Description: The family of this 425-nucleotide RNA from Aliidiomarina taiwanensis is "cspA thermoregulator".
RNA sequence: CAGUAUAACGAAGAAGUUAUAAAAUAAAUAUUCGACGAACAGAUUGGCUAGGUCUUAUUUAGCAAUGUAUACUUAACAUGCUUGAAUGUUAAAUAGACGUUCUAUGCAACGACAGGUUAGCGCUACGCUAGCAAUAUAAAUUUUAGAAAGUUAGGAAAGAAUAUGUCUGAUACAGUAACUGGUACCGUAAAGUGGUUUAACGAAGCCAAAGGCUUUGGUUUCUUAGAACAUUCAGGCGGUCCUGAUGUUUUUGUUCAUUUCAGCGCUAUCACAGGUGACGGUUUCCGUACACUUGCUGAAGGACAAAAAGUGCAGUUCACUAUUACUCAAGGCCAAAAAGGUCCACAAGCAGAGAACGUCACUGCAAUUGACUAAUUAGUUGAAACCAGAAUUAAAAAGGGCCAGCCUUCGCUGACCCUUUUUUU
Numbered sequence: 001c002a003g004u005a006u007a008a009c010g011a012a013g014a015a016g017u018u019a020u021a022a023a024a025u026a027a028a029u030a031u032u033c034g035a036c037g038a039a040c041a042g043a044u045u046g047g048c049u050a051g052g053u054c055u056u057a058u059u060u061a062g063c064a065a066u067g068u069a070u071a072c073u074u075a076a077c078a079u080g081c082u083u084g085a086a087u088g089u090u091a092a093a094u095a096g097a098c099g100u101u102c103u104a105u106g107c108a109a110c111g112a113c114a115g116g117u118u119a120g121c122g123c124u125a126c127g128c129u130a131g132c133a134a135u136a137u138a139a140a141u142u143u144u145a146g147a148a149a150g151u152u153a154g155g156a157a158a159g160a161a162u163a164u165g166u167c168u169g170a171u172a173c174a175g176u177a178a179c180u181g182g183u184a185c186c187g188u189a190a191a192g193u194g195g196u197u198u199a200a201c202g203a204a205g206c207c208a209a210a211g212g213c214u215u216u217g218g219u220u221u222c223u224u225a226g227a228a229c230a231u232u233c234a235g236g237c238g239g240u241c242c243u244g245a246u247g248u249u250u251u252u253g254u255u256c257a258u259u260u261c262a263g264c265g266c267u268a269u270c271a272c273a274g275g276u277g278a279c280g281g282u283u284u285c286c287g288u289a290c291a292c293u294u295g296c297u298g299a300a301g302g303a304c305a306a307a308a309a310g311u312g313c314a315g316u317u318c319a320c321u322a323u324u325a326c327u328c329a330a331g332g333c334c335a336a337a338a339a340g341g342u343c344c345a346c347a348a349g350c351a352g353a354g355a356a357c358g359u360c361a362c363u364g365c366a367a368u369u370g371a372c373u374a375a376u377u378a379g380u381u382g383a384a385a386c387c388a389g390a391a392u393u394a395a396a397a398a399g400g401g402c403c404a405g406c407c408u409u410c411g412c413u414g415a416c417c418c419u420u421u422u423u424u425u
Stems, first nucleotide, its partner, number of pairs: 004021006028231002031228003042222002046220004053212004062206002066202003069197001071196003077165004082160002090153003094149001098111004122132003167182003171178001235324002238321002244252002256312005265304001266302002270295002277290001331344002346370003350364003354360001373390001377388001379386002395422007403414004
Pairs were carried over by alignment from the consensus structure, which is taken from published work. It is annotated as an RNA thermoregulator. On this family, see Giuliodori et al., Mol Cell 2010: "The cspA mRNA is a thermosensor that modulates translation of the cold-shock protein CspA".